[Rfam]
Shown here is an 85-nucleotide RNA from Drosophila navojoa, a member of the family "mir-310 microRNA precursor family". Rfam links the family to the GO terms RISC complex, compound eye morphogenesis and segmentation. The family has 23 seed sequences and 60 matches in Rfam 15.1. Taxonomically the source falls in mojavensis species complex (Eukaryota, Bilateria, Aparaglossata, Panorpida). The family is grouped with related families in Rfam's "mir-92 microRNA precursor clan".
RNA sequence: GCGCUUGUAGGACGGUAUUUGUGACAAUAUGAAAUGAUGAAAUAAUUUUAUUCACCAUAUUGCACAUCUCCCGGCCUAUAAAAGA
Numbered sequence: 001g002c003g004c005u006u007g008u009a010g011g012a013c014g015g016u017a018u019u020u021g022u023g024a025c026a027a028u029a030u031g032a033a034a035u036g037a038u039g040a041a042a043u044a045a046u047u048u049u050a051u052u053c054a055c056c057a058u059a060u061u062g063c064a065c066a067u068c069u070c071c072c073g074g075c076c077u078a079u080a081a082a083a084g085a
Base pairs, nucleotide, nucleotide: 002084005081006080007079010076011075013073014072017069020066021065023063025062026061027060028059029058030057031056